Shown here is a 58-nucleotide sequence from a Polyangiaceae bacterium, a member of the family "nhaA-I RNA".
The match comes from Rfam's covariance-model search (47 bits).

RNA sequence: GGGUGCUGCGUUCCAUGAAGGAUGCAGCAGGACGUGAGGAGCGGUCGGGCCGCCGCUC
Numbered sequence: 001g002g003g004u005g006c007u008g009c010g011u012u013c014c015a016u017g018a019a020g021g022a023u024g025c026a027g028c029a030g031g032a033c034g035u036g037a038g039g040a041g042c043g044g045u046c047g048g049g050c051c052g053c054c055g056c057u058c
Stems, first nucleotide, its partner, number of pairs: 005028008039058007
The family's RNA type in Rfam is riboswitch. Rfam's curators write: Acidobacteria, Alphaproteobacteria, Betaproteobacteria and Gammaproteobacteria, Verrucomicrobia, cand. division NC10.